[Rfam]
RNA: U8 small nucleolar RNA
RNA sequence: UCGUCAGGUAGGAUAAUCCUUACCUGUUCCUCUUCGGAGGGCAGAUUAGAACGUGAUGAUUGGAGUUCACAUGAUUCAUGAAUAACGUCUCUGCGUUAUCAGGUCUUGCAACACCCUGAUUGUUCCUAUCUGAC
Numbered sequence: 001u002c003g004u005c006a007g008g009u010a011g012g013a014u015a016a017u018c019c020u021u022a023c024c025u026g027u028u029c030c031u032c033u034u035c036g037g038a039g040g041g042c043a044g045a046u047u048a049g050a051a052c053g054u055g056a057u058g059a060u061u062g063g064a065g066u067u068c069a070c071a072u073g074a075u076u077c078a079u080g081a082a083u084a085a086c087g088u089c090u091c092u093g094c095g096u097u098a099u100c101a102g103g104u105c106u107u108g109c110a111a112c113a114c115c116c117u118g119a120u121u122g123u124u125c126c127u128a129u130c131u132g133a134c
Stems, first nucleotide, its partner, number of pairs: 024044003028041005073091002077087001079084001095123002098120006